The family of this 196-nucleotide RNA from Pseudomonas sp. FeS53a is "RgsA sRNA". The family's RNA type in Rfam is small RNA. This small RNA (sRNA) was computationally identified in the genome of the opportunistic pathogen Pseudomonas aeruginosa and its expression verified by northern blot analysis. P16 sRNA appears to be conserved across several Pseudomonas species and Azotobacter vinelandii. In these species it is consistently located downstream of a predicted TatD deoxyribonuclease gene. The organism belongs to Pseudomonas, within Bacteria.
[Rfam]
RNA sequence: CAGCGGGGGCGGGAGUAUUCCAAAUCUGUUUAAAAAACGACCGAUCUGCUCUGGACGCUCGGGGAUAUUGGCCAAUACUUCCCUUUACCGGUGCGCGGCAUCUCCCCCCAAGUGCCCCGCCGGCCAAAGUACCGAGGAUCGCGUACUUUGUUUUACUCCUAAUGGUCUUGACCCGGAUUCAUCCCCCAGAACCCGG
Numbered sequence: 001c002a003g004c005g006g007g008g009g010c011g012g013g014a015g016u017a018u019u020c021c022a023a024a025u026c027u028g029u030u031u032a033a034a035a036a037a038c039g040a041c042c043g044a045u046c047u048g049c050u051c052u053g054g055a056c057g058c059u060c061g062g063g064g065a066u067a068u069u070g071g072c073c074a075a076u077a078c079u080u081c082c083c084u085u086u087a088c089c090g091g092u093g094c095g096c097g098g099c100a101u102c103u104c105c106c107c108c109c110a111a112g113u114g115c116c117c118c119g120c121c122g123g124c125c126a127a128a129g130u131a132c133c134g135a136g137g138a139u140c141g142c143g144u145a146c147u148u149u150g151u152u153u154u155a156c157u158c159c160u161a162a163u164g165g166u167c168u169u170g171a172c173c174c175g176g177a178u179u180c181a182u183c184c185c186c187c188a189g190a191a192c193c194c195g196g
Stems, first nucleotide, its partner, number of pairs: 039167005088123003094119002097116001099114003125150008133141001173196004178191003